[Rfam]
RNA sequence: ACACUCGCUGGGGCCUGGUCCUCUCCAUGUGGUCCUGACCUACCCCCCGUGAGGGAGAGAAACAGGGCUGGUUUGGGGGUGUCCCACCCCAGUGGACAUGGGAGACCACGGUUUCCAGCACAACA
Number, nucleotide and partner (000 for none) at each position: 001a000002c000003a000004c053005u052006c051007g050008c049009u000010g000011g000012g044013g043014c000015c000016u000017g040018g039019u038020c037021c000022u000023c000024u000025c032026c031027a000028u000029g000030u000031g026032g025033u000034c000035c000036u000037g020038a019039c018040c017041u000042a000043c013044c012045c000046c000047c000048c000049g008050u007051g006052a005053g004054g000055g000056a000057g000058a000059g000060a000061a000062a000063c000064a000065g121066g000067g119068c118069u117070g116071g115072u000073u111074u110075g109076g000077g000078g107079g106080u105081g000082u103083c102084c101085c100086a000087c000088c095089c094090c000091a000092g000093u000094g089095g088096a000097c000098a000099u000100g085101g084102g083103a082104g000105a080106c079107c078108a000109c075110g074111g073112u000113u000114u000115c071116c070117a069118g068119c067120a000121c065122a000123a000124c000125a000
RNA: Small Cajal body specific RNA 23